The record is a 120-nucleotide RNA sequence, which matches "FMN riboswitch aptamer (RFN element)" in Rfam. Pairs were carried over by alignment from the consensus structure, which is taken from published work. The family has 146 seed sequences and 6,230 matches in Rfam 15.1.
[Rfam]
RNA sequence: AAAGUUCUUCAGGGCAGGGUGUAAUUCCCGACCGGUGGUAAAUUGUAAGCCCACGAGCCGUAAGGUUGAUUUGGUGAAAUUCCAAAGCCGACAGUAGAGUCUGGAUGAAAGAAGACAACA
Dot-bracket structure: .....(((((......(((.......))).[[((((((..........[[))))..(((....)))...(((((.......)))))]])).(((....]]))).......))))).....
Numbered sequence: 001a002a003a004g005u006u007c008u009u010c011a012g013g014g015c016a017g018g019g020u021g022u023a024a025u026u027c028c029c030g031a032c033c034g035g036u037g038g039u040a041a042a043u044u045g046u047a048a049g050c051c052c053a054c055g056a057g058c059c060g061u062a063a064g065g066u067u068g069a070u071u072u073g074g075u076g077a078a079a080u081u082c083c084a085a086a087g088c089c090g091a092c093a094g095u096a097g098a099g100u101c102u103g104g105a106u107g108a109a110a111g112a113a114g115a116c117a118a119c120a
Stems, first nucleotide, its partner, number of pairs: 006115005017029003031100002033090002035054004049088002057066003070086005092103003